[Rfam]
RNA sequence: AAGCAACACUCUGACAGAUGAUCAGAAUUGUCUGACACAAUUUGAGCUUUCUAUAGCAAGAAAGUCAAACCUAUUCCGGUGUUCUCUCCUCCAUGAGACAAACCAUUAUAUAGACUUAAACAGU
Numbered sequence: 001a002a003g004c005a006a007c008a009c010u011c012u013g014a015c016a017g018a019u020g021a022u023c024a025g026a027a028u029u030g031u032c033u034g035a036c037a038c039a040a041u042u043u044g045a046g047c048u049u050u051c052u053a054u055a056g057c058a059a060g061a062a063a064g065u066c067a068a069a070c071c072u073a074u075u076c077c078g079g080u081g082u083u084c085u086c087u088c089c090u091c092c093a094u095g096a097g098a099c100a101a102a103c104c105a106u107u108a109u110a111u112a113g114a115c116u117u118a119a120a121c122a123g124u
Stems, first nucleotide, its partner, number of pairs: 009046003012039001013036001015034006062117005068111001072110003078104003085098004
Dot-bracket structure: ........(((((.((((((........)))))).)..)....)))...............(((((.(...(((...(((....((((......))))...)))...)))).))))).......
RNA: Small nucleolar RNA SNORA28